[Rfam]
RNA sequence: ACCGCCACGGAUGGCGGUGGUUCUAUGCAGAAAUGAGUUUUGUCCGUACAAAAAAGUAAAUGGGCAAAACUCAUUGUGAAGCAUUGUACACGGAUGUACAAUGCUUCACAUGC
Numbered sequence: 001a002c003c004g005c006c007a008c009g010g011a012u013g014g015c016g017g018u019g020g021u022u023c024u025a026u027g028c029a030g031a032a033a034u035g036a037g038u039u040u041u042g043u044c045c046g047u048a049c050a051a052a053a054a055a056g057u058a059a060a061u062g063g064g065c066a067a068a069a070c071u072c073a074u075u076g077u078g079a080a081g082c083a084u085u086g087u088a089c090a091c092g093g094a095u096g097u098a099c100a101a102u103g104c105u106u107c108a109c110a111u112g113c
Base pairs, nucleotide, nucleotide: 001018002017003016004015005014006013034073035072036071037070038069039068040067041066042065043064044063045062046061047060076109077108078107079106080105081104082103083102084101085100086099087098088097089096

Annotation:
A member of the RNA family "TD-2 RNA" from Treponema phagedenis, 113 nucleotides long. The source organism's lineage runs through Bacteria, Pseudomonadati, Spirochaetia, Treponematales and Treponema. Rfam 15.1 lists 310 matches to the family in 11 species. A search with the family's covariance model found it, with a score of 69 bits.